[Rfam]
RNA sequence: UUUUCCGUGAGGAAUGCAGUGAAGAAAGUGGGACUACAAAAUCCGGUACUGACAAACAGAAACGGCAUACGGAGGCCAGAUAGAGAGGGUAAGCAAGCACAUCUUUGCAAAGCCCGUAACCAACAAUCUCUAUUAGGUAGAUGUCGCAGGGAUCGGAGGAAGGAAUAUGUC
Numbered sequence: 001u002u003u004u005c006c007g008u009g010a011g012g013a014a015u016g017c018a019g020u021g022a023a024g025a026a027a028g029u030g031g032g033a034c035u036a037c038a039a040a041a042u043c044c045g046g047u048a049c050u051g052a053c054a055a056a057c058a059g060a061a062a063c064g065g066c067a068u069a070c071g072g073a074g075g076c077c078a079g080a081u082a083g084a085g086a087g088g089g090u091a092a093g094c095a096a097g098c099a100c101a102u103c104u105u106u107g108c109a110a111a112g113c114c115c116g117u118a119a120c121c122a123a124c125a126a127u128c129u130c131u132a133u134u135a136g137g138u139a140g141a142u143g144u145c146g147c148a149g150g151g152a153u154c155g156g157a158g159g160a161a162g163g164a165a166u167a168u169g170u171c
Stems, first nucleotide, its partner, number of pairs: 001016001003014004028171001031168001037163001042157005047151001049149003063146006075138003079134007087115004093108004
Dot-bracket structure: (.((((....)))).)...........(..(.....(....((((((.(((...........((((((......(((.(((((((.((((..((((........))))...))))............))))))).)))..))))))))).).))))).....)....)..)
Rfam assigns this 171-nucleotide RNA sequence from Marivirga aurantiaca to the family "Group II catalytic intron D1-D4-3". It scores 109 bits against the family's covariance model. Its family is annotated with Group II intron splicing in the Gene Ontology. About the family: Group II introns are found in rRNA, tRNA and mRNA of organelles in fungi, plants and protists, and also in mRNA in bacteria. The source organism's lineage runs through Bacteria, Pseudomonadati, Cytophagales, Marivirgaceae and Marivirga.